[Rfam]
RNA sequence: GCAUGGCUGAAUACUGUGUUCUUUAAUCAGUAGUUUACACAGCCAGACACCAUGCAAAAGUAAAAACUUCCUUUUAAAAUGACAAUGAUAUGCUGUUUUUUCAUGGUGUAUCAUUAUUAAAAGUGAUUACAAAU
Dot-bracket structure: ((((((.......((((((.................)))))).......)))))).............(((((((((......((((((((((((........)))))))))))).))))))).))........
RNA: Small nucleolar RNA SNORA15